[Rfam]
RNA sequence: AUUCUAGUAAAUGAUGUUGAACUUUUUUCCCCGUCAUAUCGAUCAUGGUGAAUAGCAAAAUAUUAAAGCCAAAAUAUUCUGACACUAGAGC
Numbered sequence: 001a002u003u004c005u006a007g008u009a010a011a012u013g014a015u016g017u018u019g020a021a022c023u024u025u026u027u028u029c030c031c032c033g034u035c036a037u038a039u040c041g042a043u044c045a046u047g048g049u050g051a052a053u054a055g056c057a058a059a060a061u062a063u064u065a066a067a068g069c070c071a072a073a074a075u076a077u078u079c080u081g082a083c084a085c086u087a088g089a090g091c
Base pairs, nucleotide, nucleotide: 002090003089004088005087006086007085008084
RNA: Small nucleolar SNORD12/SNORD106